[Rfam]
RNA: mir-9243 microRNA precursor family
Organism: Cnephaeus nilssonii
RNA sequence: CUAUGCAUGAAUUCAUGCACCGGGCCUCUAAUAUAUAUAAUAUAUAUAUUAGAGGCCCGGUGCAUGAAUUCAUGCAUAGGU
Numbered sequence: 001c002u003a004u005g006c007a008u009g010a011a012u013u014c015a016u017g018c019a020c021c022g023g024g025c026c027u028c029u030a031a032u033a034u035a036u037a038u039a040a041u042a043u044a045u046a047u048a049u050u051a052g053a054g055g056c057c058c059g060g061u062g063c064a065u066g067a068a069u070u071c072a073u074g075c076a077u078a079g080g081u
Base pairs, nucleotide, nucleotide: 001079002078004076005075006074007073008072009071010070011069012068013067014066016064017063018062019061020060021059022058023057024056025055026054027053028052029051030050031049032048033047034046